[Rfam]
RNA: Small nucleolar RNA SNORA48
Organism: Callithrix jacchus
RNA sequence: UGUUCCUGACCUGUAGAGUAGCAUCUGGUUGGUGGUGCCCAUCUCAUACCACCCAGUGACAAAGCAACUCCUUGUUUAUCCCAGCUUGGGUUUUGGUCUAUGCCCAGGCUUGGUUUAUGCCUUGAACACAUGG
Numbered sequence: 001u002g003u004u005c006c007u008g009a010c011c012u013g014u015a016g017a018g019u020a021g022c023a024u025c026u027g028g029u030u031g032g033u034g035g036u037g038c039c040c041a042u043c044u045c046a047u048a049c050c051a052c053c054c055a056g057u058g059a060c061a062a063a064g065c066a067a068c069u070c071c072u073u074g075u076u077u078a079u080c081c082c083a084g085c086u087u088g089g090g091u092u093u094u095g096g097u098c099u100a101u102g103c104c105c106a107g108g109c110u111u112g113g114u115u116u117a118u119g120c121c122u123u124g125a126a127c128a129c130a131u132g133g
Stems, first nucleotide, its partner, number of pairs: 001061004006056003012051002016045003021038005073128006088121002094117003098113003102109002